[Rfam]
Rfam assigns this 129-nucleotide sequence from Morella rubra to the family "Small nucleolar RNA snoR74". It scores 108 bits against the family's covariance model. Rfam classes the family as an H/ACA-box small nucleolar RNA. The organism belongs to Morella, within Eukaryota. The base pairs follow the family's consensus structure, which was predicted with WAR.
RNA sequence: AAAAAAGCAGGGGCCUGUUGACUACAUGAACUGGCCUCUCGUAAACUUCAGGGAUAUCAGUCUCAUUGUUAUUGGGUGAACCUCUGUUUGUUGUUUGUGACUGAAGGUUCAGUAAAUGAUGGAACAUCG
Numbered sequence: 001a002a003a004a005a006a007g008c009a010g011g012g013g014c015c016u017g018u019u020g021a022c023u024a025c026a027u028g029a030a031c032u033g034g035c036c037u038c039u040c041g042u043a044a045a046c047u048u049c050a051g052g053g054a055u056a057u058c059a060g061u062c063u064c065a066u067u068g069u070u071a072u073u074g075g076g077u078g079a080a081c082c083u084c085u086g087u088u089u090g091u092u093g094u095u096u097g098u099g100a101c102u103g104a105a106g107g108u109u110c111a112g113u114a115a116a117u118g119a120u121g122g123a124a125c126a127u128c129g
Base pairs, nucleotide, nucleotide: 005048006047007046011037012036014034015033017031064121065120066119067118068117069116070115077111078110079109080108081107082106083105